[Rfam]
RNA sequence: UGAUACACUGAGGGGAGCUGGCAGGAAGCCGGCUGAGAGGAAGCUGGAUUGCUUCGACCCGUGACCUGAUUUGGAUAAUGCCAACGUAGGGAUGAAGACCGUGAUAUAG
Number, nucleotide and partner (000 for none) at each position: 001u000002g000003a000004u000005a000006c097007a000008c000009u094010g093011a000012g060013g059014g058015g000016a000017g033018c032019u031020g030021g029022c000023a000024g000025g000026a000027a000028g000029c021030c020031g019032g018033c017034u000035g000036a000037g000038a000039g000040g055041a054042a053043g052044c051045u000046g000047g000048a000049u000050u000051g044052c043053u042054u041055c040056g000057a000058c014059c013060c012061g000062u000063g000064a000065c090066c089067u088068g087069a000070u000071u084072u083073g082074g081075a000076u000077a000078a000079u000080g000081c074082c073083a072084a071085c000086g000087u068088a067089g066090g065091g000092a000093u010094g009095a000096a000097g006098a000099c000100c000101g000102u000103g000104a000105u000106a000107u000108a000109g000
Annotation: The record is a 109-nucleotide RNA from Catenibacillus scindens, which matches "TPP riboswitch aptamer (THI element)" in Rfam. It scores 57 bits against the family's covariance model.